[Rfam]
RNA: MIR812 microRNA precursor family
Organism: Oryza nivara
RNA sequence: AAUAAGUACAGUUUUACACUAUUUAUGUUCAACGUUUGACCGUUCGUCUUAUUUGAAAAAUUUGUAUGAUUAGUAUUUUUAUUGCUAUUAGAAGAUAAAACGUGAAUAGUACUUUACGUGUGACUAAAUAUUUUUAAAUUUUUCAUAAAUUUUUUAAAUAAGAUGAACUGUCAAACAUUGGACACGGAUACCUACGGCUGCACUUAUU
Numbered sequence: 001a002a003u004a005a006g007u008a009c010a011g012u013u014u015u016a017c018a019c020u021a022u023u024u025a026u027g028u029u030c031a032a033c034g035u036u037u038g039a040c041c042g043u044u045c046g047u048c049u050u051a052u053u054u055g056a057a058a059a060a061u062u063u064g065u066a067u068g069a070u071u072a073g074u075a076u077u078u079u080u081a082u083u084g085c086u087a088u089u090a091g092a093a094g095a096u097a098a099a100a101c102g103u104g105a106a107u108a109g110u111a112c113u114u115u116a117c118g119u120g121u122g123a124c125u126a127a128a129u130a131u132u133u134u135u136a137a138a139u140u141u142u143u144c145a146u147a148a149a150u151u152u153u154u155u156a157a158a159u160a161a162g163a164u165g166a167a168c169u170g171u172c173a174a175a176c177a178u179u180g181g182a183c184a185c186g187g188a189u190a191c192c193u194a195c196g197g198c199u200g201c202a203c204u205u206a207u208u
Stems, first nucleotide, its partner, number of pairs: 028182005035175006042168011